Shown here is a 368-nucleotide RNA from Mycobacterium kansasii, a member of the family "transfer-messenger RNA". Rfam classes the family as a non-coding RNA gene. It scores 143 bits against the family's covariance model. Rfam's curators write: Bacterial tmRNA, also known as 10Sa RNA or SsrA, is named for its dual tRNA and mRNA-like properties. Its role is to liberate the mRNA from a stalled ribosome. To accomplish this part of the tmRNA is used as a reading frame that ends in a translation stop signal. The broken mRNA is replaced in the ribosome by the tmRNA and translation of the tmRNA leads to addition of a proteolysis tag to the incomplete protein enabling recognition by a protease. A reference for the family is Williams and Bartel (1996), "Phylogenetic analysis of tmRNA secondary structure", RNA.
RNA sequence: GGGGCUGAACGGUUUCGACUUCGCGCAUCGAAUCAAGGGAAGCGUGCCGGUGCAGGCAAGAGACCACCGUAAGCGUCGUUGCAACCAAAUAAGCGCCGAUUCACAUCAGCGCGACUACGCUCUCGCUGCCUAAGCGACGGCUAGUCUGUCAGACCGGGACCGCCCUCGACCCGGACUCUGGCAUCAGCUAGAGGGAUCAACCGAUGAGUUCGGUCGCGGGACUCGUCGGGACACCAACAGCGACUGGGAUCGUCAUCCUGGCUAGUUCGCGUGACCAGGAGAUCCGAGCAGAGGCAUAGCGAACUGCGCACGGAGAAGCCUUGAGGGAAUGCCGUAGGACCCGGGUUCGAUUCCCGGCAGCUCCACCA
Numbered sequence: 001g002g003g004g005c006u007g008a009a010c011g012g013u014u015u016c017g018a019c020u021u022c023g024c025g026c027a028u029c030g031a032a033u034c035a036a037g038g039g040a041a042g043c044g045u046g047c048c049g050g051u052g053c054a055g056g057c058a059a060g061a062g063a064c065c066a067c068c069g070u071a072a073g074c075g076u077c078g079u080u081g082c083a084a085c086c087a088a089a090u091a092a093g094c095g096c097c098g099a100u101u102c103a104c105a106u107c108a109g110c111g112c113g114a115c116u117a118c119g120c121u122c123u124c125g126c127u128g129c130c131u132a133a134g135c136g137a138c139g140g141c142u143a144g145u146c147u148g149u150c151a152g153a154c155c156g157g158g159a160c161c162g163c164c165c166u167c168g169a170c171c172c173g174g175a176c177u178c179u180g181g182c183a184u185c186a187g188c189u190a191g192a193g194g195g196a197u198c199a200a201c202c203g204a205u206g207a208g209u210u211c212g213g214u215c216g217c218g219g220g221a222c223u224c225g226u227c228g229g230g231a232c233a234c235c236a237a238c239a240g241c242g243a244c245u246g247g248g249a250u251c252g253u254c255a256u257c258c259u260g261g262c263u264a265g266u267u268c269g270c271g272u273g274a275c276c277a278g279g280a281g282a283u284c285c286g287a288g289c290a291g292a293g294g295c296a297u298a299g300c301g302a303a304c305u306g307c308g309c310a311c312g313g314a315g316a317a318g319c320c321u322u323g324a325g326g327g328a329a330u331g332c333c334g335u336a337g338g339a340c341c342c343g344g345g346u347u348c349g350a351u352u353c354c355c356g357g358c359a360g361c362u363c364c365a366c367c368a
Base pairs, nucleotide, nucleotide: 001364002363003362004361005360006359007358019337020336022334023333025332026331027330028329033324034323035322036321037320038319043312044311045310046309047308048069049068050067051066052065056082057081058080059079122144123143125141126140127139128138147183148182149181150180151179152178154174155173156172157171158170163195164194165193166192167191201229202228203227204226205225206224207223208222209221212245213244214243215242216241217240247285248284249283250282251281253280254279256277261276263274265304266303267302268301272298273297341357342356343355344354345353